The family of this 83-nucleotide sequence from Myotis lucifugus is "mir-574 microRNA precursor family". The literature on the family includes a 2007 paper in Cancer Res by Lui et al., "Patterns of known and novel small RNAs in human cervical cancer". The match comes from Rfam's covariance-model search (84 bits). NCBI's taxonomy places the organism under Eukaryota, Chordata, Euteleostomi, Theria, Myotis.
[Rfam]
RNA sequence: AGGCCUGCAGAGAGAGAGGCAGGGUCUAAUCCACAGCGUCCAUCGCAGCUGUUGAUCAGCCAUUGCCUCUCCCUUUUUCUCCC
Numbered sequence: 001a002g003g004c005c006u007g008c009a010g011a012g013a014g015a016g017a018g019g020c021a022g023g024g025u026c027u028a029a030u031c032c033a034c035a036g037c038g039u040c041c042a043u044c045g046c047a048g049c050u051g052u053u054g055a056u057c058a059g060c061c062a063u064u065g066c067c068u069c070u071c072c073c074u075u076u077u078u079c080u081c082c083c
Stems, first nucleotide, its partner, number of pairs: 010075003014071009024061001026059002029056003034051004
Dot-bracket structure: .........(((.(((((((((.(.((.(((..((((..........))))..))).)).).))))))))).)))........